Description: A member of the RNA family "Glycine riboswitch aptamer" from Microvirgula aerodenitrificans, 125 nucleotides long.
RNA sequence: GCCAAUCACUCUGGAGAGCGGCGCCGCCAGCACGGCGCACACCGAAGGGGCUAACGACGGGACGCCGGACCUGAAAACGGUUCGCCCCGCCGGAAAAUCUCAGGUGCCGGGACAGAGGGGUGUCA
Numbered sequence: 001g002c003c004a005a006u007c008a009c010u011c012u013g014g015a016g017a018g019c020g021g022c023g024c025c026g027c028c029a030g031c032a033c034g035g036c037g038c039a040c041a042c043c044g045a046a047g048g049g050g051c052u053a054a055c056g057a058c059g060g061g062a063c064g065c066c067g068g069a070c071c072u073g074a075a076a077a078c079g080g081u082u083c084g085c086c087c088c089g090c091c092g093g094a095a096a097a098u099c100u101c102a103g104g105u106g107c108c109g110g111g112a113c114a115g116a117g118g119g120g121u122g123u124c125a
Stems, first nucleotide, its partner, number of pairs: 006120002009117005021038005041105003044101002048099002055092002
Description
The source organism's lineage runs through Bacteria, Pseudomonadati, Pseudomonadota, Neisseriales and Microvirgula.